[Rfam]
RNA sequence: UAGUGUUACGGCUCUUUAAGAAUUUUUCUAGCAGGAUUUCCAAUCUGUACUGAAAAAUCCCCC
Numbered sequence: 001u002a003g004u005g006u007u008a009c010g011g012c013u014c015u016u017u018a019a020g021a022a023u024u025u026u027u028c029u030a031g032c033a034g035g036a037u038u039u040c041c042a043a044u045c046u047g048u049a050c051u052g053a054a055a056a057a058u059c060c061c062c063c
Base pairs, nucleotide, nucleotide: 034060035059036058037056038055039054041052042051044049
Background: A member of the RNA family "U7 small nuclear RNA" from Odocoileus virginianus, 63 nucleotides long. The family's consensus secondary structure was predicted with PFOLD. NCBI's taxonomy places the organism under Eukaryota, Craniata, Odocoileinae, Odocoileus, Odocoileus virginianus. A search with the family's covariance model found it, with a score of 53 bits.